MIR807 microRNA precursor family: a 178-nucleotide RNA sequence from Oryza barthii. On this family, see Luo et al., FEBS Lett 2006: "Rice embryogenic calli express a unique set of microRNAs, suggesting regulatory roles of microRNAs in plant post-embryogenic development". Gene Ontology terms of the family: miRNA-mediated post-transcriptional gene silencing and RISC complex.
[Rfam]
RNA sequence: UAGUAUGGUUUCACGAUGAAUGGGUUCACCCAUGAUAUAGCAUGGUUGUUCCACUUAGAACGAGGACGUACCAUCCUAUUAUCAGCCAUCGCACAAAAUUAAUAGGAUGCCACAUCCUCAACCUAAGUGGAAUAACCACGUCAUUUCAUAGGUGAAUCUAUUCAUUAAUAGUGUAGUU
Number, nucleotide and partner (000 for none) at each position: 001u000002a177003g000004u175005a174006u173007g172008g000009u170010u000011u168012c000013a166014c000015g000016a165017u164018g000019a162020a161021u160022g000023g158024g157025u156026u155027c154028a153029c152030c151031c000032a149033u148034g147035a146036u000037a144038u143039a000040g141041c140042a000043u138044g137045g136046u135047u134048g133049u132050u131051c000052c000053a128054c127055u000056u125057a124058g000059a000060a000061c000062g000063a000064g000065g116066a115067c000068g000069u000070a000071c000072c109073a108074u107075c106076c105077u104078a103079u102080u101081a100082u000083c000084a000085g000086c000087c000088a099089u098090c000091g000092c000093a000094c000095a000096a000097a000098a089099u088100u081101a080102a079103u078104a077105g076106g075107a074108u073109g072110c000111c000112a000113c000114a000115u066116c065117c000118u000119c000120a000121a000122c000123c000124u057125a056126a000127g054128u053129g000130g000131a050132a049133u048134a047135a046136c045137c044138a043139c000140g041141u040142c000143a038144u037145u000146u035147c034148a033149u032150a000151g030152g029153u028154g027155a026156a025157u024158c023159u000160a021161u020162u019163c000164a017165u016166u013167a000168a011169u000170a009171g000172u007173g006174u005175a004176g000177u002178u000
Rfam 15.1 lists 1,514 matches to the family in 13 species. The match comes from Rfam's covariance-model search (142 bits). Pairs were carried over by alignment from the consensus structure, which was predicted with WAR.